[Rfam]
The record is a 55-nucleotide RNA from Sphingobium indicum, which matches "terC RNA" in Rfam. Rfam classes the family as a cis-regulatory element.
RNA sequence: CUUUCCCGCCGGGCCCCGCUGGCAGACUGACCGUCUGCGAUGUCGGAGGGACAAA
Numbered sequence: 001c002u003u004u005c006c007c008g009c010c011g012g013g014c015c016c017c018g019c020u021g022g023c024a025g026a027c028u029g030a031c032c033g034u035c036u037g038c039g040a041u042g043u044c045g046g047a048g049g050g051a052c053a054a055a
Stems, first nucleotide, its partner, number of pairs: 006049002009046004022038006
Pairs were carried over by alignment from the consensus structure, which is taken from published work.